[Rfam]
RNA sequence: UAGUAUUUGGCAGAGGUGUAUGGAGUGAGAGAAGGGAAAAACGCCUUUCCCGAUCUCAUCGGUUCUUUCUUUCCUCUCUCAUUCCAUACAUCGUCUGACGAACGUAGC
Numbered sequence: 001u002a003g004u005a006u007u008u009g010g011c012a013g014a015g016g017u018g019u020a021u022g023g024a025g026u027g028a029g030a031g032a033a034g035g036g037a038a039a040a041a042c043g044c045c046u047u048u049c050c051c052g053a054u055c056u057c058a059u060c061g062g063u064u065c066u067u068u069c070u071u072u073c074c075u076c077u078c079u080c081a082u083u084c085c086a087u088a089c090a091u092c093g094u095c096u097g098a099c100g101a102a103c104g105u106a107g108c
Stems, first nucleotide, its partner, number of pairs: 006102004011097004015092018034074005051061004
MIR1507 microRNA precursor family: a 108-nucleotide sequence from Vigna unguiculata. NCBI's taxonomy places the organism under Eukaryota, Streptophyta, Gunneridae, Papilionoideae, Vigna. Gene Ontology terms of the family: miRNA-mediated post-transcriptional gene silencing and RISC complex.